Rfam assigns this 161-nucleotide sequence from Ammoniphilus oxalaticus to the family "FMN riboswitch aptamer (RFN element)".
Rfam links the family to the GO term FMN binding.
Lineage of the source: Bacteria > Bacillati > Caryophanales > Paenibacillaceae > Ammoniphilus.

[Rfam]
RNA sequence: CGAAUCCUUCGGGGCAGGGUGAAACUCCCGACCGGCGGUGAUGGGGCGAACCUGACUUGGCGCCCUUAAGUCCGUGAGCUCAAUGCUAUCUAUUGCCUAGCGCGAGCCGAUUUGGUGGAAUUCCAAAACCGACAGUAAAGUCUGGAUGGGAGAAGGAUUUA
Numbered sequence: 001c002g003a004a005u006c007c008u009u010c011g012g013g014g015c016a017g018g019g020u021g022a023a024a025c026u027c028c029c030g031a032c033c034g035g036c037g038g039u040g041a042u043g044g045g046g047c048g049a050a051c052c053u054g055a056c057u058u059g060g061c062g063c064c065c066u067u068a069a070g071u072c073c074g075u076g077a078g079c080u081c082a083a084u085g086c087u088a089u090c091u092a093u094u095g096c097c098u099a100g101c102g103c104g105a106g107c108c109g110a111u112u113u114g115g116u117g118g119a120a121u122u123c124c125a126a127a128a129c130c131g132a133c134a135g136u137a138a139a140g141u142c143u144g145g146a147u148g149g150g151a152g153a154a155g156g157a158u159u160u161a
Base pairs, nucleotide, nucleotide: 003159004158005157006156007155008154009153010152017029018028019027031141032140033131034130035075036074037073038072070129071128078107079106080105111127112126113125114124115123133144134143135142